[Rfam]
RNA sequence: UUUGCACACAAAACCCAAAGAUCAUUAUACCAUGUUCUGAUGAUCUUGUCUGCUGUGCAGAAAUAAACUGUACCUUGUCGCCUUUCUAGAGCUGAUGUGUUUUUGAAAGUGAACAAAAAGGUACAACAAAG
Numbered sequence: 001u002u003u004g005c006a007c008a009c010a011a012a013a014c015c016c017a018a019a020g021a022u023c024a025u026u027a028u029a030c031c032a033u034g035u036u037c038u039g040a041u042g043a044u045c046u047u048g049u050c051u052g053c054u055g056u057g058c059a060g061a062a063a064u065a066a067a068c069u070g071u072a073c074c075u076u077g078u079c080g081c082c083u084u085u086c087u088a089g090a091g092c093u094g095a096u097g098u099g100u101u102u103u104u105g106a107a108a109g110u111g112a113a114c115a116a117a118a119a120g121g122u123a124c125a126a127c128a129a130a131g
Stems, first nucleotide, its partner, number of pairs: 002060007020045008029036001070124007082109005088103005
RNA: Small nucleolar RNA SNORA68